A member of the RNA family "U4 spliceosomal RNA" from Nyctereutes procyonoides, 156 nucleotides long. NCBI's taxonomy places the organism under Eukaryota, Chordata, Dipnotetrapodomorpha, Eutheria, Nyctereutes. The family's consensus secondary structure is taken from published work. Gene Ontology terms of the family: U4 snRNP and spliceosomal tri-snRNP complex assembly. A search with the family's covariance model found it, with a score of 64 bits.

[Rfam]
RNA sequence: AGCUUUGCGCUGUGGCAGUAUCGUAGCCAAUGAGGUUUACCUGAGACAUGAUUAUUGCUAAUUGAAAAUAGAGAUCCUACUUUUGGUCUUUUUCAUUCCUUCUGUAAUUUCUACUCCAGAUAAAGACAUGACAUGUUUUUGCCGUAACUGUUGUUU
Numbered sequence: 001a002g003c004u005u006u007g008c009g010c011u012g013u014g015g016c017a018g019u020a021u022c023g024u025a026g027c028c029a030a031u032g033a034g035g036u037u038u039a040c041c042u043g044a045g046a047c048a049u050g051a052u053u054a055u056u057g058c059u060a061a062u063u064g065a066a067a068a069u070a071g072a073g074a075u076c077c078u079a080c081u082u083u084u085g086g087u088c089u090u091u092u093u094c095a096u097u098c099c100u101u102c103u104g105u106a107a108u109u110u111c112u113a114c115u116c117c118a119g120a121u122a123a124a125g126a127c128a129u130g131a132c133a134u135g136u137u138u139u140u141g142c143c144g145u146a147a148c149u150g151u152u153g154u155u156u
Base pairs, nucleotide, nucleotide: 020052021051022050023049024048026047028045034042035041086132087131088130089124090123091122093120094119146155147154148153